[Rfam]
RNA sequence: AGCAACAGCUGGGACAUCAAACAGACAAUCCCCUCGCCUUUUACUAGGGGAUUCCGUGAUGUUCCAGCGUCCGAAUGUUGCUAUACAAUCUUUGGACUCACUUCGCUCCUCAUGAGC
Numbered sequence: 001a002g003c004a005a006c007a008g009c010u011g012g013g014a015c016a017u018c019a020a021a022c023a024g025a026c027a028a029u030c031c032c033c034u035c036g037c038c039u040u041u042u043a044c045u046a047g048g049g050g051a052u053u054c055c056g057u058g059a060u061g062u063u064c065c066a067g068c069g070u071c072c073g074a075a076u077g078u079u080g081c082u083a084u085a086c087a088a089u090c091u092u093u094g095g096a097c098u099c100a101c102u103u104c105g106c107u108c109c110u111c112a113u114g115a116g117c
Stems, first nucleotide, its partner, number of pairs: 003080004009067011027053008105117003

Background:
U5 spliceosomal RNA: a 117-nucleotide RNA from Lyophyllum shimeji. The base pairs follow the family's consensus structure, which is taken from published work. A search with the family's covariance model found it, with a score of 60 bits. About the family: U5 RNA is a component of both types of known spliceosome. The precise function of this molecule is unknown, though it is known that the 5' loop is required for splice site selection and p220 binding, and that both the 3' stem-loop and the Sm site are important for Sm protein binding and cap methylation. NCBI's taxonomy places the organism under Eukaryota, Opisthokonta, Fungi, Dikarya, Lyophyllum.